[Rfam]
RNA sequence: AUUGCAUUAAGACUUGGUAACUCCACCACCGUUGGCGUAUGAUUGAUAGUCAAUGGGGUACGAGUUUCCGUUUUUCAGUGCUGA
Numbered sequence: 001a002u003u004g005c006a007u008u009a010a011g012a013c014u015u016g017g018u019a020a021c022u023c024c025a026c027c028a029c030c031g032u033u034g035g036c037g038u039a040u041g042a043u044u045g046a047u048a049g050u051c052a053a054u055g056g057g058g059u060a061c062g063a064g065u066u067u068c069c070g071u072u073u074u075u076c077a078g079u080g081c082u083g084a
Base pairs, nucleotide, nucleotide: 004081005080006079007078008077010075011074012073016069017068019066020065021064022063023062027058029056030055031054032053033052034051035050036049
RNA: mir-2765 microRNA precursor family